[Rfam]
RNA: BsrG
Nucleotides: 255
Base pairs, nucleotide, nucleotide: 001228002226003225004224005223007221008220009219011217013199014198015197016196017195018155019154020153021152022151023150024149025148027145028144032052033051035050036049037048038047062124063123064122065121066120068118075090076089077088099115100114101113200216202214203213234255235254236253237252238251239250240249241248242247
Number, partner (000 for none) and nucleotide at each position: 001228c002226g003225u004224a005223a006000u007221a008220g009219a010000a011217u012000a013199g014198g015197c016196u017195u018155c019154u020153c021152a022151a023150g024149g025148g026000u027145g028144g029000c030000g031000g032052c033051a034000u035050c036049c037048c038047c039000a040000g041000u042000g043000a044000a045000a046000g047038g048037g049036g050035g051033u052032g053000a054000u055000g056000c057000c058000a059000a060000c061000u062124g063123a064122c065121a066120g067000u068118a069000u070000u071000c072000g073000a074000a075090g076089c077088a078000u079000u080000a081000a082000c083000a084000c085000u086000u087000a088077u089076g090075u091000u092000a093000c094000u095000c096000u097000u098000c099115g100114c101113a102000a103000c104000a105000c106000u107000g108000c109000u110000c111000a112000u113101u114100g115099c116000u117000u118068u119000u120066c121065u122064g123063u124062c125000a126000u127000u128000u129000a130000u131000a132000g133000a134000c135000a136000g137000a138000a139000a140000a141000u142000a143000a144028u145027c146000c147000a148025c149024c150023c151022u152021u153020g154019a155018g156000c157000u158000u159000g160000u161000g162000c163000a164000g165000g166000c167000u168000u169000a170000g171000g172000u173000g174000g175000a176000u177000u178000a179000u180000u181000u182000c183000a184000a185000u186000u187000c188000a189000a190000a191000g192000a193000a194000a195017a196016a197015g198014c199013c200216g201000c202214c203213c204000c205000u206000c207000u208000u209000g210000a211000a212000g213203g214202g215000c216200u217011g218000u219009u220008c221007u222000g223005u224004u225003g226002c227000a228001g229000u230000u231000g232000a233000c234255c235254g236253c237252u238251g239250a240249u241248g242247u243000u244000a245000u246000a247242g248241c249240a250239u251238c252237a253236g254235u255234g